[Rfam]
RNA sequence: CAACCGGGUGGCUGGAAGCCUCAGGAAACUUGGGGUACCCCCGUUGA
Numbered sequence: 001c002a003a004c005c006g007g008g009u010g011g012c013u014g015g016a017a018g019c020c021u022c023a024g025g026a027a028a029c030u031u032g033g034g035g036u037a038c039c040c041c042c043g044u045u046g047a
Stems, first nucleotide, its partner, number of pairs: 006042003010039002018036008
This 47-nucleotide RNA belongs to the Rfam family "Hepatitis C virus stem-loop I". It is one of the family's seed sequences. It is annotated as a cis-regulatory element. Rfam links the family to the GO term viral RNA genome replication.